[Rfam]
RNA sequence: GCCUCUGCCCGCAACUGGCGCAUCGAGAUGGACCACCAUCAGGGAGCGGGCGGUAUCGUUCAUGUCGCGCGCCUGGGCAAUCUGC
Numbered sequence: 001g002c003c004u005c006u007g008c009c010c011g012c013a014a015c016u017g018g019c020g021c022a023u024c025g026a027g028a029u030g031g032a033c034c035a036c037c038a039u040c041a042g043g044g045a046g047c048g049g050g051c052g053g054u055a056u057c058g059u060u061c062a063u064g065u066c067g068c069g070c071g072c073c074u075g076g077g078c079a080a081u082c083u084g085c
Stems, first nucleotide, its partner, number of pairs: 005053008015043002017073005028039004063079004
A member of the RNA family "ZMP/ZTP riboswitch aptamer (pfl RNA motif)" from Blastomonas sp. AAP25, 85 nucleotides long. The base pairs follow the family's consensus structure, which is taken from published work. The match comes from Rfam's covariance-model search (58 bits). Its family is annotated with one-carbon metabolic process and regulation of purine nucleotide biosynthetic process in the Gene Ontology. Lineage of the source: Bacteria > Pseudomonadati > Pseudomonadota > Blastomonadaceae > Blastomonas.